[Rfam]
RNA sequence: CGGGAUCAACCGACGUUAGGGAAUUCGGCAAGUUAGUCCCGUAAGUUCGCGAUAAGGGAUGCCUGCUCCUGACCGAGCAGGUCGCAGUGACUCGGGCGCUCCAACUGUCUAGUAACAACAUAGGUGACCGCAAAUCCGCAAGGACUCGUACGGUCACUGAAUCCUGCCCAGUGCAGGUAUCUGAACACCUCGUACAAGAGGACGAAGGACCUGUCAACGGCGGGGGUAACUAUGACCCUCUUAAGGUAGCGUAGUACCUUGCCGCUUCAGUAGCGGCUUGCAUGAAUGGAUCAAUGAGAGCGCCACUGUCCCAACGUUGGGCCCGGUGAACUGUACGUUCCAGUGCGGAGUCUGGAGA
Numbered sequence: 001c002g003g004g005a006u007c008a009a010c011c012g013a014c015g016u017u018a019g020g021g022a023a024u025u026c027g028g029c030a031a032g033u034u035a036g037u038c039c040c041g042u043a044a045g046u047u048c049g050c051g052a053u054a055a056g057g058g059a060u061g062c063c064u065g066c067u068c069c070u071g072a073c074c075g076a077g078c079a080g081g082u083c084g085c086a087g088u089g090a091c092u093c094g095g096g097c098g099c100u101c102c103a104a105c106u107g108u109c110u111a112g113u114a115a116c117a118a119c120a121u122a123g124g125u126g127a128c129c130g131c132a133a134a135u136c137c138g139c140a141a142g143g144a145c146u147c148g149u150a151c152g153g154u155c156a157c158u159g160a161a162u163c164c165u166g167c168c169c170a171g172u173g174c175a176g177g178u179a180u181c182u183g184a185a186c187a188c189c190u191c192g193u194a195c196a197a198g199a200g201g202a203c204g205a206a207g208g209a210c211c212u213g214u215c216a217a218c219g220g221c222g223g224g225g226g227u228a229a230c231u232a233u234g235a236c237c238c239u240c241u242u243a244a245g246g247u248a249g250c251g252u253a254g255u256a257c258c259u260u261g262c263c264g265c266u267u268c269a270g271u272a273g274c275g276g277c278u279u280g281c282a283u284g285a286a287u288g289g290a291u292c293a294a295u296g297a298g299a300g301c302g303c304c305a306c307u308g309u310c311c312c313a314a315c316g317u318u319g320g321g322c323c324c325g326g327u328g329a330a331c332u333g334u335a336c337g338u339u340c341c342a343g344u345g346c347g348g349a350g351u352c353u354g355g356a357g358a
Stems, first nucleotide, its partner, number of pairs: 001325004010320008019311003036060005045050001061082008083087001095304007102296002106120003123158008131148001135144003161291004166221003171218002173214005180209003188201004222240006241245001261277006339356005
A member of the RNA family "Archaeal large subunit ribosomal RNA" from Halogeometricum borinquense, 358 nucleotides of a longer RNA. Rfam 15.1 lists 2,955 matches to the family in 1,139 species. It is one of the family's seed sequences. The family is grouped with related families in Rfam's "LSU clan". NCBI's taxonomy places the organism under Archaea, Methanobacteriota, Halobacteriales, Haloferacaceae, Halogeometricum borinquense.